[Rfam]
A member of the RNA family "RNA Staph. aureus E (RoxS)" from Bacillus thermotolerans, 104 nucleotides long.
RNA sequence: GUGAAGUUGAUCACAAGCAAACAUAUACCCCUUUGUUUGACCGUGAAAAAUUUCUCCCAUCCCCUUUGUUCGUAAGAAGAGGCCUUGCUUGUCAAGGCCUCUUC
Numbered sequence: 001g002u003g004a005a006g007u008u009g010a011u012c013a014c015a016a017g018c019a020a021a022c023a024u025a026u027a028c029c030c031c032u033u034u035g036u037u038u039g040a041c042c043g044u045g046a047a048a049a050a051u052u053u054c055u056c057c058c059a060u061c062c063c064c065u066u067u068g069u070u071c072g073u074a075a076g077a078a079g080a081g082g083c084c085u086u087g088c089u090u091g092u093c094a095a096g097g098c099c100u101c102u103u104c
Stems, first nucleotide, its partner, number of pairs: 003054006011046004018039006070075001079101009